[Rfam]
RNA sequence: GGCUUUCUUCGCCCAGGCAAAGCGCGACCGCCACGGGAAGUCAUGGUGGCGUUCAUCCACCGCCAUCGAAUAGUUCACGGGGUGGAGUCGAUCUGCGCGCUGCUGCCGAUCGCCCCG
Numbered sequence: 001g002g003c004u005u006u007c008u009u010c011g012c013c014c015a016g017g018c019a020a021a022g023c024g025c026g027a028c029c030g031c032c033a034c035g036g037g038a039a040g041u042c043a044u045g046g047u048g049g050c051g052u053u054c055a056u057c058c059a060c061c062g063c064c065a066u067c068g069a070a071u072a073g074u075u076c077a078c079g080g081g082g083u084g085g086a087g088u089c090g091a092u093c094u095g096c097g098c099g100c101u102g103c104u105g106c107c108g109a110u111c112g113c114c115c116c117g
Stems, first nucleotide, its partner, number of pairs: 016032003078117005089112002092109002095106003
Rfam assigns this 117-nucleotide RNA from Sediminicurvatus halobius to the family "ALIL pseudoknot". The family has 26 seed sequences and 2,146 matches in Rfam 15.1. NCBI's taxonomy places the organism under Bacteria, Pseudomonadati, Pseudomonadota, Gammaproteobacteria, Sediminicurvatus. The base pairs follow the family's consensus structure, which is taken from published work. Rfam links the family to the GO term positive regulation of translational frameshifting. For this family Rfam cites "Apical loop-internal loop RNA pseudoknots: a new type of stimulator of -1 translational frameshifting in bacteria" (Mazauric et al., J Biol Chem, 2008). A search with the family's covariance model found it, with a score of 69 bits. Rfam classes the family as a cis-regulatory element.